Shown here is a 62-nucleotide RNA from Tupaia belangeri, a member of the family "mir-32 microRNA precursor family".
Gene Ontology terms of the family: RISC complex, Wnt signaling pathway and miRNA-mediated post-transcriptional gene silencing.
RNA sequence: UAUUGCACAUUACUAAGUUGCAUGUUGUCACGGCCUCAAUGCAAUUUAGUGUGUGUGAUAUU
Dot-bracket structure: ((((((((((.((((((((((((...............))))))))))))))))))))))..
Numbered sequence: 001u002a003u004u005g006c007a008c009a010u011u012a013c014u015a016a017g018u019u020g021c022a023u024g025u026u027g028u029c030a031c032g033g034c035c036u037c038a039a040u041g042c043a044a045u046u047u048a049g050u051g052u053g054u055g056u057g058a059u060a061u062u
Stems, first nucleotide, its partner, number of pairs: 001060010012050012

Lineage of the source: Eukaryota > Metazoa > Euteleostomi > Mammalia > Tupaia belangeri.